RNA sequence: AAUCCCUGUGAUGAACUAGCUGAGUAAUUUAAAAGUAGUGGCCUGAUAUCCAUUGAUGAAAAGCUUUAUUCUGAGGGAUU
Numbered sequence: 001a002a003u004c005c006c007u008g009u010g011a012u013g014a015a016c017u018a019g020c021u022g023a024g025u026a027a028u029u030u031a032a033a034a035g036u037a038g039u040g041g042c043c044u045g046a047u048a049u050c051c052a053u054u055g056a057u058g059a060a061a062a063g064c065u066u067u068a069u070u071c072u073g074a075g076g077g078a079u080u
Stems, first nucleotide, its partner, number of pairs: 001080006
This 80-nucleotide RNA from Anisodus acutangulus belongs to the Rfam family "Small nucleolar RNA R21".
Its family is annotated with RNA processing and nucleolus in the Gene Ontology.